Overview:
Shown here is a 75-nucleotide sequence from Streptomyces sp. BA2, a member of the family "ASpks TB sRNA". A search with the family's covariance model found it, with a score of 57 bits. Pairs were carried over by alignment from the consensus structure, which is taken from published work. Rfam classes the family as an antisense RNA. The source organism's lineage runs through Bacteria, Actinomycetota, Kitasatosporales, Streptomycetaceae and Streptomyces.

RNA sequence: UUUGAUGGAGCCGAGCCAGAGCGGUUGUUCGGUGGUGUGGGCCUUGCCGUAGGUGGUGAGGAGGGCUUGUGCCUC
Numbered sequence: 001u002u003u004g005a006u007g008g009a010g011c012c013g014a015g016c017c018a019g020a021g022c023g024g025u026u027g028u029u030c031g032g033u034g035g036u037g038u039g040g041g042c043c044u045u046g047c048c049g050u051a052g053g054u055g056g057u058g059a060g061g062a063g064g065g066c067u068u069g070u071g072c073c074u075c
Base pairs, nucleotide, nucleotide: 014026015025016024017023032070033069038065043060044059045058047056048055049054